[Rfam]
RNA sequence: GGCCUCGUGUGAUGGAGACAUGCCCGGGGAGGACUGUGACCAACUGGGAUGUAUUCUUACUGUCUGAUGGGCC
Dot-bracket structure: .(.((((...(((((....((((((.((..((.......))..)).))..)))).....)))))...)))).)
About this RNA: A member of the RNA family "Small nucleolar RNA ZL2" from Heterocephalus glaber, 73 nucleotides long. Rfam classes the family as a C/D-box small nucleolar RNA. The base pairs follow the family's consensus structure, which was predicted with RNAfold. Lineage of the source: Eukaryota > Amniota > Eutheria > Hystricomorpha > Heterocephalus. On this family, see Kishore et al., Genome Biol 2013: "Insights into snoRNA biogenesis and processing from PAR-CLIP of snoRNA core proteins and small RNA sequencing".